Rfam assigns this 217-nucleotide sequence from Streptomyces fructofermentans to the family "Actinobacteria sRNA Ms_IGR-5". Taxonomically the source falls in Streptomyces (Bacteria, Bacillati, Kitasatosporales, Streptomycetaceae). By type it is a small RNA. It scores 86 bits against the family's covariance model.
RNA sequence: ACACACGAAGGGAGGUGGUUCGGCAGAUGUACACAUACCGGACGCGUGAGGUGACUGCGGGCUAGCGGCCCGCCACCACACCGAGUGCGGUGCCGGACCAGCGCGCGAGACCUGCGCGCAGCCGGCCCAAUCCCAGCAGUCACCCGACCCGCGAGUUCGCCGGUACGUCCGGCCGGCUCCCUCCCCGGAGGGAUCCCGAGCUCGCGGGUCGUCUGCG
Numbered sequence: 001a002c003a004c005a006c007g008a009a010g011g012g013a014g015g016u017g018g019u020u021c022g023g024c025a026g027a028u029g030u031a032c033a034c035a036u037a038c039c040g041g042a043c044g045c046g047u048g049a050g051g052u053g054a055c056u057g058c059g060g061g062c063u064a065g066c067g068g069c070c071c072g073c074c075a076c077c078a079c080a081c082c083g084a085g086u087g088c089g090g091u092g093c094c095g096g097a098c099c100a101g102c103g104c105g106c107g108a109g110a111c112c113u114g115c116g117c118g119c120a121g122c123c124g125g126c127c128c129a130a131u132c133c134c135a136g137c138a139g140u141c142a143c144c145c146g147a148c149c150c151g152c153g154a155g156u157u158c159g160c161c162g163g164u165a166c167g168u169c170c171g172g173c174c175g176g177c178u179c180c181c182u183c184c185c186c187g188g189a190g191g192g193a194u195c196c197c198g199a200g201c202u203c204g205c206g207g208g209u210c211g212u213c214u215g216c217g
Stems, first nucleotide, its partner, number of pairs: 015058005060127004065122002068119002071116003145211013159177006
Pairs were carried over by alignment from the consensus structure.